[Rfam]
RNA sequence: GGAAAUUUGAGAGGAGCUGUCCUUAGUACGAGAGGACCGGGAUGGACACACCGCUGGUGUACCAGUUGUUCUGCCAAGGGCAUCGCUGGGUAGCUAUGUGUGGACGGGAUAAACGCUGAAAGCAUCUAAGCGUGAAGCCCCCCUCGAGAUGAGAUUUCCCAUCUGAGAAGAGUAAGACCCCUGAGAGACGAACAGGUAGAUAGGCUAGGAGUGGAAGUGCUGUGAGGCAUGGAGCGGACUAGUACUAAUCGGUCGAGG
Numbered sequence: 001g002g003a004a005a006u007u008u009g010a011g012a013g014g015a016g017c018u019g020u021c022c023u024u025a026g027u028a029c030g031a032g033a034g035g036a037c038c039g040g041g042a043u044g045g046a047c048a049c050a051c052c053g054c055u056g057g058u059g060u061a062c063c064a065g066u067u068g069u070u071c072u073g074c075c076a077a078g079g080g081c082a083u084c085g086c087u088g089g090g091u092a093g094c095u096a097u098g099u100g101u102g103g104a105c106g107g108g109a110u111a112a113a114c115g116c117u118g119a120a121a122g123c124a125u126c127u128a129a130g131c132g133u134g135a136a137g138c139c140c141c142c143c144u145c146g147a148g149a150u151g152a153g154a155u156u157u158c159c160c161a162u163c164u165g166a167g168a169a170g171a172g173u174a175a176g177a178c179c180c181c182u183g184a185g186a187g188a189c190g191a192a193c194a195g196g197u198a199g200a201u202a203g204g205c206u207a208g209g210a211g212u213g214g215a216a217g218u219g220c221u222g223u224g225a226g227g228c229a230u231g232g233a234g235c236g237g238a239c240u241a242g243u244a245c246u247a248a249u250c251g252g253u254c255g256a257g258g
Stems, first nucleotide, its partner, number of pairs: 001159008011145004017045007047102005055096003062089005067082006106140003113133005162171003173256001176254004180196004201247003204243005211235001217230005
Bacterial large subunit ribosomal RNA: a 258-nucleotide part of an RNA from Granulicatella sp. zg-ZJ. The organism belongs to Granulicatella, within Bacteria. A search with the family's covariance model found it, with a score of 2889 bits. The family has 102 seed sequences and 51,934 matches in Rfam 15.1.